[Rfam]
This 77-nucleotide RNA from Methylomonas sp. LWB belongs to the Rfam family "c-di-GMP-I riboswitch aptamer". The organism belongs to Methylomonas, within Bacteria. The family has 155 seed sequences and 5,092 matches in Rfam 15.1. A search with the family's covariance model found it, with a score of 50 bits.
RNA sequence: CGGUAAAUUUGCCACAUCCGCCGCAAGACGGAGCCGGAAAGCCUUGGGUCUUGGUUCAAGACAGCCGGGUUGCCUCU
Numbered sequence: 001c002g003g004u005a006a007a008u009u010u011g012c013c014a015c016a017u018c019c020g021c022c023g024c025a026a027g028a029c030g031g032a033g034c035c036g037g038a039a040a041g042c043c044u045u046g047g048g049u050c051u052u053g054g055u056u057c058a059a060g061a062c063a064g065c066c067g068g069g070u071u072g073c074c075u076c077u
Stems, first nucleotide, its partner, number of pairs: 012037002017032004022027001040071004045067003048062006